[Rfam]
Record summary: The family of this 105-nucleotide RNA from Candidatus Manganitrophus noduliformans is "TPP riboswitch aptamer (THI element)". A search with the family's covariance model found it, with a score of 69 bits.
RNA sequence: AAACAAAUCCAGGGGUGCCGCCACGGCUGAGAGUCUCGACAACGUCGGGACAACCCUUUGAACCUGAUCUGGGUAAUGCCAGCGAAGGGAAUUCAAUCGAUAUCA
Numbered sequence: 001a002a003a004c005a006a007a008u009c010c011a012g013g014g015g016u017g018c019c020g021c022c023a024c025g026g027c028u029g030a031g032a033g034u035c036u037c038g039a040c041a042a043c044g045u046c047g048g049g050a051c052a053a054c055c056c057u058u059u060g061a062a063c064c065u066g067a068u069c070u071g072g073g074u075a076a077u078g079c080c081a082g083c084g085a086a087g088g089g090a091a092u093u094c095a096a097u098c099g100a101u102a103u104c105a
Stems, first nucleotide, its partner, number of pairs: 006093003010089001011057004017027004034050007063088003069082004
The organism belongs to Candidatus Manganitrophus, within Bacteria.